The record is a 560-nucleotide RNA sequence from Staphylococcus epidermidis, which matches "RNAIII" in Rfam.
For this family Rfam cites "Probing the structure of RNAIII, the Staphylococcus aureus agr regulatory RNA, and identification of the RNA domain involved in repression of protein A expression" (Benito et al., RNA, 2000).
The base pairs follow the family's consensus structure, which is taken from published work.
Rfam's curators write: This family represents RNAIII which is known to regulate the expression of many Staphylococcus aureus genes encoding exoproteins and cell wall associated proteins.
The family's RNA type in Rfam is non-coding RNA gene.
RNA sequence: AUAUCACAGAGAUGUGAUUGAAAGAUAGUUGAAAAAUUUGCUUAAUCUAGUCGAGUGAAUGUUAAAUUCAUUCGUAUCCAUUACCUUAAUUCGAAAGGAGUGAAGUUAUAAUGGCAGCAGAUAUCAUUUCUACAAUCGGUGAUUUAGUAAAAUGGAUUAUCGAUACAGUUAAUAAAUUCAAAAAAUAAUUUUUGAAUGAGUCUAUUGUAACUUUUGUAACUUUGUUUUCUUCGUAUAAUUAAUACUAUUAGUGAGUUGUUGAGCCAUCCCAACUUAAUAAUUUACUAAUAUAAACUAAGCAAGUGAGAAGCAUUUGCUAGUAGCUGUAGUUUCCUUGGACUCAGUGUUACGUAUUAUUUUUAGCUACCUUAAUAGGUAAUUAUUUCUAGCAUGUAAGCUAUCGUAAACAACAUUCAAUUUAUCAUGUUAAAUAGAUAAAUUCACUAAAAUUUUUUCAUAAUUAAUAACAUCCCCAAAAAAUAGAUUGAAAAAAUAACUGUAAAAACAUUCCCUUAAUAAUAAGUUAUCAAGCCGUGAGUCUCUCCCAAGCUCACGGCUUU
Numbered sequence: 001a002u003a004u005c006a007c008a009g010a011g012a013u014g015u016g017a018u019u020g021a022a023a024g025a026u027a028g029u030u031g032a033a034a035a036a037u038u039u040g041c042u043u044a045a046u047c048u049a050g051u052c053g054a055g056u057g058a059a060u061g062u063u064a065a066a067u068u069c070a071u072u073c074g075u076a077u078c079c080a081u082u083a084c085c086u087u088a089a090u091u092c093g094a095a096a097g098g099a100g101u102g103a104a105g106u107u108a109u110a111a112u113g114g115c116a117g118c119a120g121a122u123a124u125c126a127u128u129u130c131u132a133c134a135a136u137c138g139g140u141g142a143u144u145u146a147g148u149a150a151a152a153u154g155g156a157u158u159a160u161c162g163a164u165a166c167a168g169u170u171a172a173u174a175a176a177u178u179c180a181a182a183a184a185a186u187a188a189u190u191u192u193u194g195a196a197u198g199a200g201u202c203u204a205u206u207g208u209a210a211c212u213u214u215u216g217u218a219a220c221u222u223u224g225u226u227u228u229c230u231u232c233g234u235a236u237a238a239u240u241a242a243u244a245c246u247a248u249u250a251g252u253g254a255g256u257u258g259u260u261g262a263g264c265c266a267u268c269c270c271a272a273c274u275u276a277a278u279a280a281u282u283u284a285c286u287a288a289u290a291u292a293a294a295c296u297a298a299g300c301a302a303g304u305g306a307g308a309a310g311c312a313u314u315u316g317c318u319a320g321u322a323g324c325u326g327u328a329g330u331u332u333c334c335u336u337g338g339a340c341u342c343a344g345u346g347u348u349a350c351g352u353a354u355u356a357u358u359u360u361u362a363g364c365u366a367c368c369u370u371a372a373u374a375g376g377u378a379a380u381u382a383u384u385u386c387u388a389g390c391a392u393g394u395a396a397g398c399u400a401u402c403g404u405a406a407a408c409a410a411c412a413u414u415c416a417a418u419u420u421a422u423c424a425u426g427u428u429a430a431a432u433a434g435a436u437a438a439a440u441u442c443a444c445u446a447a448a449a450u451u452u453u454u455u456c457a458u459a460a461u462u463a464a465u466a467a468c469a470u471c472c473c474c475a476a477a478a479a480a481u482a483g484a485u486u487g488a489a490a491a492a493a494u495a496a497c498u499g500u501a502a503a504a505a506c507a508u509u510c511c512c513u514u515a516a517u518a519a520u521a522a523g524u525u526a527u528c529a530a531g532c533c534g535u536g537a538g539u540c541u542c543u544c545c546c547a548a549g550c551u552c553a554c555g556g557c558u559u560u
Stems, first nucleotide, its partner, number of pairs: 003018006025500007034414002038410003042406003048088002097130007106121002136163007143155002169180001171178002195226001198223002206218003233350003238345003255281009290321002304312002323342001327338001361382003365378004387400004417440007450493008460485003464481002530558010